[Rfam]
RNA sequence: CUGCAUGAUAUGAUGAAGCAUUUGGAUACAAAACAAAACACCCACCGAGAGCGCAAAAACCAUGUGGAUAUCUCCGUUGCCUUCCUUCUGAUCUGCU
Numbered sequence: 001c002u003g004c005a006u007g008a009u010a011u012g013a014u015g016a017a018g019c020a021u022u023u024g025g026a027u028a029c030a031a032a033a034c035a036a037a038a039c040a041c042c043c044a045c046c047g048a049g050a051g052c053g054c055a056a057a058a059a060c061c062a063u064g065u066g067g068a069u070a071u072c073u074c075c076g077u078u079g080c081c082u083u084c085c086u087u088c089u090g091a092u093c094u095g096c097u
Stems, first nucleotide, its partner, number of pairs: 003096003023076004